[Rfam]
RNA: SAM riboswitch aptamer (S box leader)
RNA sequence: UUCUUAUCCAGAGAAACCGAGGGACAGGCCCUAUGACGUUUCGGCAGCGGAUUCGCUUUUAGCGAAAACUGUGCUAAUUCCUGCAAAUGCAUAUAUGUGCAUUUGGAAGAUGAGAA
Numbered sequence: 001u002u003c004u005u006a007u008c009c010a011g012a013g014a015a016a017c018c019g020a021g022g023g024a025c026a027g028g029c030c031c032u033a034u035g036a037c038g039u040u041u042c043g044g045c046a047g048c049g050g051a052u053u054c055g056c057u058u059u060u061a062g063c064g065a066a067a068a069c070u071g072u073g074c075u076a077a078u079u080c081c082u083g084c085a086a087a088u089g090c091a092u093a094u095a096u097g098u099g100c101a102u103u104u105g106g107a108a109g110a111u112g113a114g115a116a
Stems, first nucleotide, its partner, number of pairs: 001116008013042005021031003025083004043075004048071002052066004079108001084105008
Dot-bracket structure: ((((((((....(((((...(((.[[[[)))......)))))((((.((..((((.......))))...))))))...(]]]]((((((((......))))))))..)))))))))